The record is a 120-nucleotide RNA sequence from Aureimonas sp. Leaf454, which matches "Alphaproteobacterial ar14" in Rfam. Rfam 15.1 lists 784 matches to the family in 332 species. The organism belongs to Aureimonas, within Bacteria. Rfam's curators write: Smr14C2 was renamed NfeR1 (Nodule Formation Efficiency RNA) highly expressed in salt stress and during the symbiotic interaction on legume roots. By type it is a small RNA. The base pairs follow the family's consensus structure. Its family is annotated with biological process involved in symbiotic interaction in the Gene Ontology. The match comes from Rfam's covariance-model search (71 bits).
RNA sequence: CCCUUUCGCUUCGACCGAUCUCCUCCCAUAGGUCGAAGCGGAUCCGUCCACGGCAUCCUCCUCCCAAAGCCGUCGGACAUGUCAUGACGCCCACCGGUCCUCCCCCGGUGGGCGUUUUUC
Numbered sequence: 001c002c003c004u005u006u007c008g009c010u011u012c013g014a015c016c017g018a019u020c021u022c023c024u025c026c027c028a029u030a031g032g033u034c035g036a037a038g039c040g041g042a043u044c045c046g047u048c049c050a051c052g053g054c055a056u057c058c059u060c061c062u063c064c065c066a067a068a069g070c071c072g073u074c075g076g077a078c079a080u081g082u083c084a085u086g087a088c089g090c091c092c093a094c095c096g097g098u099c100c101u102c103c104c105c106c107g108g109u110g111g112g113c114g115u116u117u118u119u120c
Base pairs, nucleotide, nucleotide: 007040008039009038011036012035013034014033015032016031046078047077048076049075050073051072052071053070054069087115088114089113090112091111092110093109094108095107096106097105